[Rfam]
RNA sequence: CGGGGAUUUCGGCAGCCUCCCCGUCAGAUGGAUCGCCAUCCAAGCGCUGC
Number, nucleotide and partner (000 for none) at each position: 001c023002g022003g021004g020005g019006a018007u000008u000009u000010c000011g000012g050013c049014a048015g047016c046017c000018u006019c005020c004021c003022c002023g001024u000025c000026a000027g040028a039029u038030g037031g036032a000033u000034c000035g000036c031037c030038a029039u028040c027041c000042a000043a000044g000045c000046g016047c015048u014049g013050c012
chrB-b RNA: a 50-nucleotide sequence.
It is annotated as a cis-regulatory element.
Pairs were carried over by alignment from the consensus structure, which is taken from published work.